[Rfam]
RNA sequence: CCGCCCGUCGCUACUACCGAUGGAUUAUUUAGUGAGGUCUUUGAAGACGAACCUAUGCUGCUGCUCCUCGUGGGCCACAUUCGCUUCGUUGAAGUUGACCGAACUUGAUGAUUUAGAGGAAGUAAAAGUCGUAACAAGGUUUCCGUAGGUGAACCUGCGGAAGGAUCAUUA
Number, nucleotide and partner (000 for none) at each position: 001c138002c000003g135004c000005c000006c131007g130008u000009c128010g000011c000012u124013a123014c122015u121016a000017c119018c118019g000020a000021u115022g114023g113024a112025u111026u110027a109028u108029u107030u000031a105032g104033u103034g000035a000036g100037g099038u098039c097040u000041u000042u094043g000044a000045a000046g090047a089048c088049g087050a086051a085052c000053c083054u000055a081056u000057g078058c000059u000060g075061c074062u073063g000064c000065u000066c000067c000068u000069c000070g000071u000072g000073g062074g061075c060076c000077a000078c057079a000080u000081u055082c000083g053084c000085u051086u050087c049088g048089u047090u046091g000092a000093a000094g042095u000096u000097g039098a038099c037100c036101g000102a000103a033104c032105u031106u000107g029108a028109u027110g026111a025112u024113u023114u022115a021116g000117a000118g018119g017120a000121a015122g014123u013124a012125a000126a000127a000128g009129u000130c007131g006132u000133a000134a000135c003136a000137a000138g001139g000140u163141u162142u161143c160144c159145g158146u157147a156148g155149g154150u000151g000152a000153a000154c149155c148156u147157g146158c145159g144160g143161a142162a141163g140164g000165a000166u000167c000168a000169u000170u000171a000
RNA: Eukaryotic small subunit ribosomal RNA, nucleotides 1808 to 1978